[Rfam]
RNA sequence: CGUGAUUAACGGUCGGUUUUCACCUUGAUCUGAGAGCAAUAACCAGAAUGCUUAUCUGAGAUCAUCGUGAAAGCUAGUUGUUACUUCACU
Numbered sequence: 001c002g003u004g005a006u007u008a009a010c011g012g013u014c015g016g017u018u019u020u021c022a023c024c025u026u027g028a029u030c031u032g033a034g035a036g037c038a039a040u041a042a043c044c045a046g047a048a049u050g051c052u053u054a055u056c057u058g059a060g061a062u063c064a065u066c067g068u069g070a071a072a073g074c075u076a077g078u079u080g081u082u083a084c085u086u087c088a089c090u
Stems, first nucleotide, its partner, number of pairs: 008082004015075009026064006033057003036051002

The record is a 90-nucleotide RNA sequence from Caenorhabditis briggsae, which matches "mir-81 microRNA precursor family" in Rfam. Rfam 15.1 lists 68 matches to the family in 54 species. Pairs were carried over by alignment from the consensus structure, which was predicted with RNAalifold. The family is grouped with related families in Rfam's "mir-81 clan". The organism belongs to Caenorhabditis, within Eukaryota.